RNA sequence: GGGCACCCCAGAGGAGUGGCACCUGAGAACACAGGUGGUUGUGCUGCUGUACCACCAAGCAACUGAUGCACCUGUUACCUGUGUUCUCAGGUCACCCCUUUGGGGAACCC
Numbered sequence: 001g002g003g004c005a006c007c008c009c010a011g012a013g014g015a016g017u018g019g020c021a022c023c024u025g026a027g028a029a030c031a032c033a034g035g036u037g038g039u040u041g042u043g044c045u046g047c048u049g050u051a052c053c054a055c056c057a058a059g060c061a062a063c064u065g066a067u068g069c070a071c072c073u074g075u076u077a078c079c080u081g082u083g084u085u086c087u088c089a090g091g092u093c094a095c096c097c098c099u100u101u102g103g104g105g106a107a108c109c110c
Stems, first nucleotide, its partner, number of pairs: 007104002011100004016095004025088010